Background: sodF sRNA: a 96-nucleotide RNA sequence from Streptomyces longwoodensis. The match comes from Rfam's covariance-model search (76 bits). By type it is a small RNA. NCBI's taxonomy places the organism under Bacteria, Bacillati, Actinomycetes, Kitasatosporales, Streptomyces.

[Rfam]
RNA sequence: GCGUCCUGCCUCGUGAUCGUCUUCUCACCCUUCACGCGGGCAGGUCGAGGAAAGAAGGAAGGCCCCCUGCGCGGACGUGACGCGCGGGGGGCCUUC
Numbered sequence: 001g002c003g004u005c006c007u008g009c010c011u012c013g014u015g016a017u018c019g020u021c022u023u024c025u026c027a028c029c030c031u032u033c034a035c036g037c038g039g040g041c042a043g044g045u046c047g048a049g050g051a052a053a054g055a056a057g058g059a060a061g062g063c064c065c066c067c068u069g070c071g072c073g074g075a076c077g078u079g080a081c082g083c084g085c086g087g088g089g090g091g092c093c094u095u096c
Base pairs, nucleotide, nucleotide: 002047003046005044006043007042008041009040010039011038013035014034015033016032019029058096059095060094061093062092063091064090065089066088067087068086069085070084071083072082073081